[Rfam]
RNA sequence: GCAGUGAAGCCGCACCGGUGGUCCCGUGAGAAGGAUCGGUGCGGAUGAAGGUGAUCUCCGCCCUUGCCUGGGCGGGAGCAUCGUGAGCGUCCGGCGUCUGAGAGUUCCAGCUCUCAGGCGCCGUCG
Numbered sequence: 001g002c003a004g005u006g007a008a009g010c011c012g013c014a015c016c017g018g019u020g021g022u023c024c025c026g027u028g029a030g031a032a033g034g035a036u037c038g039g040u041g042c043g044g045a046u047g048a049a050g051g052u053g054a055u056c057u058c059c060g061c062c063c064u065u066g067c068c069u070g071g072g073c074g075g076g077a078g079c080a081u082c083g084u085g086a087g088c089g090u091c092c093g094g095c096g097u098c099u100g101a102g103a104g105u106u107c108c109a110g111c112u113c114u115c116a117g118g119c120g121c122c123g124u125c126g
Stems, first nucleotide, its partner, number of pairs: 001088002006046001010044009023034002050082004057076007092123014
The record is a 126-nucleotide sequence from Streptomyces venezuelae, which matches "Streptomyces RNA 6925" in Rfam.
From the family's description: Identified by deep sequencing of transcriptome at the end of exponential growth phase. Sequencing size consistent with northern blot size.
The source organism's lineage runs through Bacteria, Actinomycetes, Kitasatosporales, Streptomyces and Streptomyces venezuelae.
It is annotated as a small RNA.